The record is a 118-nucleotide RNA from Sodalis ligni, which matches "Guanidine-I riboswitch aptamer" in Rfam. The match comes from Rfam's covariance-model search (90 bits). Rfam describes the family as follows. This family represents a conserved RNA structure found upstream of the ykkC and yxkD genes in Bacillus subtilis and related genes in other bacteria. Lineage of the source: Bacteria > Pseudomonadati > Gammaproteobacteria > Enterobacterales > Sodalis. Pairs were carried over by alignment from the consensus structure.
RNA sequence: GCAACAGGUCACUAGGGUUCCGGUUCGGUUAACGAAUGUCUGGUCCGAGAGUGACCGACCACCAUAUGACGGUUAAUACCCUCUGGCGGUUACACGGCGGGAUAAAAGCCCGGGAGGC
Numbered sequence: 001g002c003a004a005c006a007g008g009u010c011a012c013u014a015g016g017g018u019u020c021c022g023g024u025u026c027g028g029u030u031a032a033c034g035a036a037u038g039u040c041u042g043g044u045c046c047g048a049g050a051g052u053g054a055c056c057g058a059c060c061a062c063c064a065u066a067u068g069a070c071g072g073u074u075a076a077u078a079c080c081c082u083c084u085g086g087c088g089g090u091u092a093c094a095c096g097g098c099g100g101g102a103u104a105a106a107a108g109c110c111c112g113g114g115a116g117g118c
Stems, first nucleotide, its partner, number of pairs: 007056006015046002020043002022040001023037005057091004062086003093113001095116001099111003